[Rfam]
The record is a 357-nucleotide RNA from Rothia aerolata, which matches "Bacterial RNase P class A" in Rfam. On this family, see Frank and Pace, Annu Rev Biochem 1998: "Ribonuclease P: unity and diversity in a tRNA processing ribozyme".
RNA sequence: CAGGGCACCCAGGCAAUCGCGAGGGAAACCUUGAGGAAAGUCCGGGCUCCACAGCACAGGAUGGUAGAUAACAUCUACCCACGGCAACGUGCGGGCCAGUGCCACAGAAAACAAACCGCCUGCCAGCAGGUAAGGGUGAAAAGGUGGGGUAAGAGCCCACCAGUACCCCGGGUAACCGGGGUAGCUCGGUAAACCCCAUUCGGAGCAAGGCCAAAUAUGAACACGCCAGACGGUUGUGCGCCGAAGUGUUCGGGUAGGCUGCUUGAGCACCCCGCGAGGGAGUGCCUAGAUGGAUGAUUGCCACCCGCCCCGUUUCAGAGGCGGGCACAGAACCCGGCUUAUCGGGUGCCCUGUUCU
Numbered sequence: 001c002a003g004g005g006c007a008c009c010c011a012g013g014c015a016a017u018c019g020c021g022a023g024g025g026a027a028a029c030c031u032u033g034a035g036g037a038a039a040g041u042c043c044g045g046g047c048u049c050c051a052c053a054g055c056a057c058a059g060g061a062u063g064g065u066a067g068a069u070a071a072c073a074u075c076u077a078c079c080c081a082c083g084g085c086a087a088c089g090u091g092c093g094g095g096c097c098a099g100u101g102c103c104a105c106a107g108a109a110a111a112c113a114a115a116c117c118g119c120c121u122g123c124c125a126g127c128a129g130g131u132a133a134g135g136g137u138g139a140a141a142a143g144g145u146g147g148g149g150u151a152a153g154a155g156c157c158c159a160c161c162a163g164u165a166c167c168c169c170g171g172g173u174a175a176c177c178g179g180g181g182u183a184g185c186u187c188g189g190u191a192a193a194c195c196c197c198a199u200u201c202g203g204a205g206c207a208a209g210g211c212c213a214a215a216u217a218u219g220a221a222c223a224c225g226c227c228a229g230a231c232g233g234u235u236g237u238g239c240g241c242c243g244a245a246g247u248g249u250u251c252g253g254g255u256a257g258g259c260u261g262c263u264u265g266a267g268c269a270c271c272c273c274g275c276g277a278g279g280g281a282g283u284g285c286c287u288a289g290a291u292g293g294a295u296g297a298u299u300g301c302c303a304c305c306c307g308c309c310c311c312g313u314u315u316c317a318g319a320g321g322c323g324g325g326c327a328c329a330g331a332a333c334c335c336g337g338c339u340u341a342u343c344g345g346g347u348g349c350c351c352u353g354u355u356c357u
Stems, first nucleotide, its partner, number of pairs: 001353010011342001012302007020033005038340003042337005047205004054239004059201005064078005079093001080091004094196002099194002101190003116135002118131005143161006163185001164183008209260004219251006231243004267285004271280003
Description
A search with the family's covariance model found it, with a score of 311 bits.